[Rfam]
RNA sequence: CUCGAGAAAGGCAAACCCGUCGUAAGGCGGGGGCGCAAAGCCAAGGGCCCCGUUUGUUCAGGGGAAGCCUGGCUGCCGAUG
Numbered sequence: 001c002u003c004g005a006g007a008a009a010g011g012c013a014a015a016c017c018c019g020u021c022g023u024a025a026g027g028c029g030g031g032g033g034c035g036c037a038a039a040g041c042c043a044a045g046g047g048c049c050c051c052g053u054u055u056g057u058u059c060a061g062g063g064g065a066a067g068c069c070u071g072g073c074u075g076c077c078g079a080u081g
Stems, first nucleotide, its partner, number of pairs: 001081001003078002011036002016031006034067001039074004044070003048064002
c-di-GMP-I-GGC riboswitch aptamer: an 81-nucleotide sequence from Botrimarina colliarenosi. It scores 72 bits against the family's covariance model. The base pairs follow the family's consensus structure, which is taken from published work. Taxonomically the source falls in Botrimarina (Bacteria, Pseudomonadati, Pirellulales, Lacipirellulaceae).